[Rfam]
RNA sequence: GCCUUCGUAGCUCAGUGGUGAGAGCACCGCCCUGAUAAGGCGGGGGUCGGAAGUUCGAUUCUUCCCGAGGGCA
Numbered sequence: 001g002c003c004u005u006c007g008u009a010g011c012u013c014a015g016u017g018g019u020g021a022g023a024g025c026a027c028c029g030c031c032c033u034g035a036u037a038a039g040g041c042g043g044g045g046g047u048c049g050g051a052a053g054u055u056c057g058a059u060u061c062u063u064c065c066c067g068a069g070g071g072c073a
Base pairs, nucleotide, nucleotide: 001072002071003070004069005068006067007066010025011024012023013022027043028042029041030040031039049065050064051063052062053061

The record is a 73-nucleotide RNA from Nocardia otitidiscaviarum, which matches "tRNA" in Rfam. The match comes from Rfam's covariance-model search (73 bits). Clan: tRNA clan. Rfam describes the family as follows. Transfer RNA (tRNA) molecules are approximately 80 nucleotides in length. Pairs were carried over by alignment from the consensus structure, which is taken from published work. Lineage of the source: Bacteria > Actinomycetota > Mycobacteriales > Nocardiaceae > Nocardia.